[Rfam]
RNA sequence: AUACGAUAAAGGCAAACUCAUUGAAAAGUGAGGACGCAAAGCUAUGGGUCUAAGGUUCUGUCAAUGAACUAUGAUCGCCAGGCCGCCGAA
Numbered sequence: 001a002u003a004c005g006a007u008a009a010a011g012g013c014a015a016a017c018u019c020a021u022u023g024a025a026a027a028g029u030g031a032g033g034a035c036g037c038a039a040a041g042c043u044a045u046g047g048g049u050c051u052a053a054g055g056u057u058c059u060g061u062c063a064a065u066g067a068a069c070u071a072u073g074a075u076c077g078c079c080a081g082g083c084c085g086c087c088g089a090a
Base pairs, nucleotide, nucleotide: 012037013036017032018031019030020029021028022027041083042082043081045080046079047078048075049074050073055069056068057067058066